[Rfam]
RNA sequence: UGAAUCCCACUUAGUAAAGUCUAACCAACAACUAGCACUUAGAUCCUACGCCGAAGCAGUAAUGUAAGGUUUAAGCGUAAUCAAAGGAACAUUCAAGCCGGAAGUGUAUACUGAAGUUAUUAGCCUCGAAAGGCAGAGUUUGGAAAGGUCGAUGGUUUUGGAGAAUCAGAAGACAACAUUGAUUACAUCGUAAAGGUGAGAUGUAAUCAACUUUCCCGGGGUUGUAAGACCU
Numbered sequence: 001u002g003a004a005u006c007c008c009a010c011u012u013a014g015u016a017a018a019g020u021c022u023a024a025c026c027a028a029c030a031a032c033u034a035g036c037a038c039u040u041a042g043a044u045c046c047u048a049c050g051c052c053g054a055a056g057c058a059g060u061a062a063u064g065u066a067a068g069g070u071u072u073a074a075g076c077g078u079a080a081u082c083a084a085a086g087g088a089a090c091a092u093u094c095a096a097g098c099c100g101g102a103a104g105u106g107u108a109u110a111c112u113g114a115a116g117u118u119a120u121u122a123g124c125c126u127c128g129a130a131a132g133g134c135a136g137a138g139u140u141u142g143g144a145a146a147g148g149u150c151g152a153u154g155g156u157u158u159u160g161g162a163g164a165a166u167c168a169g170a171a172g173a174c175a176a177c178a179u180u181g182a183u184u185a186c187a188u189c190g191u192a193a194a195g196g197u198g199a200g201a202u203g204u205a206a207u208c209a210a211c212u213u214u215c216c217c218g219g220g221g222u223u224g225u226a227a228g229a230c231c232u
Base pairs, nucleotide, nucleotide: 012034013033014032019029020028022199024197025196036087039084042082043081044080046077048072050070051069052068056065057064058063121226123222124221125220126219127218128217142216143215144214145213146212147211148174149173150172153168154167155166156165179210180209181208182207183206184205185204186203187202188201189200
RNA: Group II catalytic intron D1-D4-6